[Rfam]
RNA sequence: GCACCAGGCCGGGCCCCUCUGGCAGCCUCAUACAAGCUGCGAUGUCGGACUGGGUGA
Numbered sequence: 001g002c003a004c005c006a007g008g009c010c011g012g013g014c015c016c017c018u019c020u021g022g023c024a025g026c027c028u029c030a031u032a033c034a035a036g037c038u039g040c041g042a043u044g045u046c047g048g049a050c051u052g053g054g055u056g057a
Stems, first nucleotide, its partner, number of pairs: 006051002009048004022040005028034001
Rfam assigns this 57-nucleotide RNA from Salinarimonas soli to the family "terC RNA". The family's consensus secondary structure is taken from published work.